[Rfam]
RNA: Plastid-psbA-3 3UTR RNA
RNA sequence: AAGGGAGCAAUAACCAACCUCUUGUUCGAUCAAGAGAGCUGGUAUUGCUCCUU
Numbered sequence: 001a002a003g004g005g006a007g008c009a010a011u012a013a014c015c016a017a018c019c020u021c022u023u024g025u026u027c028g029a030u031c032a033a034g035a036g037a038g039c040u041g042g043u044a045u046u047g048c049u050c051c052u053u
Stems, first nucleotide, its partner, number of pairs: 002053011014041001019036006